About this RNA:
Rfam assigns this 96-nucleotide sequence from Mesobacillus zeae to the family "Guanidine-I riboswitch aptamer". Rfam describes the family as follows. This family represents a conserved RNA structure found upstream of the ykkC and yxkD genes in Bacillus subtilis and related genes in other bacteria. The function of this family is unclear although it has been suggested that it may function to switch on efflux pumps and detoxification systems in response to harmful environmental molecules. It scores 83 bits against the family's covariance model. The source organism's lineage runs through Bacteria, Bacillati, Caryophanales, Bacillaceae and Mesobacillus.

[Rfam]
RNA sequence: UGUAAAGUCCCCUAGGGUUCCGCGGUAAUUCCGGCUGGUCCGAGAGGGGGCGCGCGGCAGGCGCUGCGUACACGGAGGGAUAAAAGCCCGGGAGAU
Numbered sequence: 001u002g003u004a005a006a007g008u009c010c011c012c013u014a015g016g017g018u019u020c021c022g023c024g025g026u027a028a029u030u031c032c033g034g035c036u037g038g039u040c041c042g043a044g045a046g047g048g049g050g051c052g053c054g055c056g057g058c059a060g061g062c063g064c065u066g067c068g069u070a071c072a073c074g075g076a077g078g079g080a081u082a083a084a085a086g087c088c089c090g091g092g093a094g095a096u
Base pairs, nucleotide, nucleotide: 007051008050009049010048011047012046015041016040020038021037022035023033024032025031052069053068054067055066056065057064058063071091073094077089078088079087